T-box leader: a 230-nucleotide RNA sequence from Paenibacillus solani. About the family: Uncharged tRNA acts as the effector for transcription antitermination of genes in the T-box leader family. T-boxes are found upstream of many aminoacyl-tRNA synthetase genes and some amino acid biosynthetic genes usually in Gram-positive bacteria. Rfam classes the family as a cis-regulatory leader. It scores 102 bits against the family's covariance model.
Nucleotides: 230
Stems, first nucleotide, its partner, number of pairs: 008097001015093004023082002025079004034070003045067006101128002104124004130142003175192005198227004209223004
Number, partner (000 for none) and nucleotide at each position: 001000g002000u003000g004000a005000a006000a007000c008097c009000g010000a011000u012000g013000a014000c015093g016092g017091a018090a019000a020000a021000a022000a023082g024081a025079u026078g027077c028076u029000g030000u031000a032000a033000c034070g035069c036068c037000c038000u039000c040000a041000g042000a043000g044000a045067g046066c047065c048064g049063a050062u051000g052000g053000u054000u055000g056000g057000u058000g059000c060000a061000a062050a063049u064048c065047g066046g067045u068036g069035g070034c071000g072000a073000g074000a075000a076028a077027g078026u079025a080000a081024u082023c083000u084000u085000a086000a087000g088000c089000g090018u091017u092016c093015c094000u095000g096000a097008g098000a099000u100000a101128u102127u103000u104124c105123g106122c107121u108000g109000a110000a111000g112000u113000a114000u115000a116000u117000a118000g119000u120000a121107g122106g123105c124104g125000u126000a127102a128101a129000u130142c131141g132140g133000a134000u135000g136000a137000u138000a139000u140132c141131c142130g143000u144000u145000a146000c147000c148000a149000a150000u151000c152000a153000u154000g155000g156000u157000c158000u159000g160000a161000a162000c163000a164000g165000a166000c167000c168000g169000c170000u171000u172000g173000a174000g175192g176191c177190u178189g179188c180000g181000c182000a183000a184000g185000a186000c187000a188179g189178c190177a191176g192175c193000g194000a195000a196000u197000a198227a199226g200225g201224g202000u203000g204000g205000c206000a207000c208000c209223a210222c211221g212220a213000a214000u215000a216000a217000c218000u219000c220212u221211c222210g223209u224201c225200c226199c227198u228000u229000a230000c